The record is a 73-nucleotide RNA, which matches "tRNA" in Rfam. The sequence is in the family's curated seed alignment. The family's RNA type in Rfam is transfer RNA. Clan: tRNA clan. Pairs were carried over by alignment from the consensus structure, which is taken from published work. Transfer RNA (tRNA) molecules are approximately 80 nucleotides in length.
[Rfam]
RNA sequence: GCCCGCGUAGCUCAGAUGGUAGAGCAUUCCCAUGGUAAGGGAAAGGCCUCCGGUUCAAGUCCGGUCGUAGGCU
Numbered sequence: 001g002c003c004c005g006c007g008u009a010g011c012u013c014a015g016a017u018g019g020u021a022g023a024g025c026a027u028u029c030c031c032a033u034g035g036u037a038a039g040g041g042a043a044a045g046g047c048c049u050c051c052g053g054u055u056c057a058a059g060u061c062c063g064g065u066c067g068u069a070g071g072c073u
Base pairs, nucleotide, nucleotide: 001072002071003070005068006067007066010025011024012023013022027043028042029041030040031039050064051063052062053061